Rfam assigns this 104-nucleotide RNA sequence from Acanthaster planci to the family "Vault RNA". Rfam classes the family as a non-coding RNA gene.
RNA sequence: GUGUCGGCUAAUGGCUAAGUGGAUACUUCGUCAUAGCGAUAUUUCUACCAGCAGAGGUACUCGGUUUGAACACCCAAGAUCCACUGGCGCAAUCCGGCACUUUU
Numbered sequence: 001g002u003g004u005c006g007g008c009u010a011a012u013g014g015c016u017a018a019g020u021g022g023a024u025a026c027u028u029c030g031u032c033a034u035a036g037c038g039a040u041a042u043u044u045c046u047a048c049c050a051g052c053a054g055a056g057g058u059a060c061u062c063g064g065u066u067u068g069a070a071c072a073c074c075c076a077a078g079a080u081c082c083a084c085u086g087g088c089g090c091a092a093u094c095c096g097g098c099a100c101u102u103u104u
Stems, first nucleotide, its partner, number of pairs: 002099006014088004019084004027070004